[Rfam]
RNA sequence: UGGGGGAUUGAUACACAGAUGGAGAUGAAAUCUGCUUCAUUUGUCACAAAAUCUCCCUAGAAUAGAAAUGCUCUCUGAUGACCGGGGCGAAAUGAGAGAAAUCGUCACGGACAGAUACGGAGCGGACACAU
Numbered sequence: 001u002g003g004g005g006g007a008u009u010g011a012u013a014c015a016c017a018g019a020u021g022g023a024g025a026u027g028a029a030a031u032c033u034g035c036u037u038c039a040u041u042u043g044u045c046a047c048a049a050a051a052u053c054u055c056c057c058u059a060g061a062a063u064a065g066a067a068a069u070g071c072u073c074u075c076u077g078a079u080g081a082c083c084g085g086g087g088c089g090a091a092a093u094g095a096g097a098g099a100a101a102u103c104g105u106c107a108c109g110g111a112c113a114g115a116u117a118c119g120g121a122g123c124g125g126a127c128a129c130a131u
Stems, first nucleotide, its partner, number of pairs: 002057006015044004022037003069124006082110003087105004
RNA: Small Cajal body specific RNA 8
Organism: Aquarana catesbeiana